[Rfam]
RNA sequence: CCCAAUGGUUGUCUCUAGCGAGGUAUAGAGUUCCUACGUUAUUAUAUUUAUUAUUGUAGGAACUUCAUACCGUGCUCUUGGACAUUCAUU
Numbered sequence: 001c002c003c004a005a006u007g008g009u010u011g012u013c014u015c016u017a018g019c020g021a022g023g024u025a026u027a028g029a030g031u032u033c034c035u036a037c038g039u040u041a042u043u044a045u046a047u048u049u050a051u052u053a054u055u056g057u058a059g060g061a062a063c064u065u066c067a068u069a070c071c072g073u074g075c076u077c078u079u080g081g082a083c084a085u086u087c088a089u090u
Base pairs, nucleotide, nucleotide: 012081013080017076018075019074020073022071023070024069025068026067028065029064030063031062032061033060034059035058036057037056
About this RNA
A member of the RNA family "mir-276 microRNA precursor family" from Polypedilum vanderplanki, 90 nucleotides long. On this family, see Skalsky et al., BMC Genomics 2010: "Identification of microRNAs expressed in two mosquito vectors, Aedes albopictus and Culex quinquefasciatus". A search with the family's covariance model found it, with a score of 78 bits.